[Rfam]
RNA sequence: CAGCACUAUGAUGAAGUAUUACGGAUGUAAAACCAGCUCAAAGCUGUGGUCCGAGAGCGCAUACAACCAUGUGGAUUUUUUUGUUGCCUUCCUUCUGAAAUGUGCA
Number, nucleotide and partner (000 for none) at each position: 001c000002a000003g105004c104005a103006c000007u000008a000009u000010g000011a000012u000013g000014a000015a000016g000017u000018a000019u000020u000021a000022c083023g082024g081025a080026u000027g000028u000029a000030a000031a000032a000033c000034c000035a000036g000037c000038u000039c000040a000041a000042a000043g000044c000045u000046g000047u000048g000049g000050u000051c000052c000053g000054a000055g000056a000057g000058c000059g000060c000061a000062u000063a000064c000065a000066a000067c000068c000069a000070u000071g000072u000073g000074g000075a000076u000077u000078u000079u000080u025081u024082u023083g022084u000085u000086g000087c000088c000089u000090u000091c000092c000093u000094u000095c000096u000097g000098a000099a000100a000101u000102g000103u005104g004105c003106a000
RNA: Small nucleolar RNA Z13/snr52
Organism: Heliocybe sulcata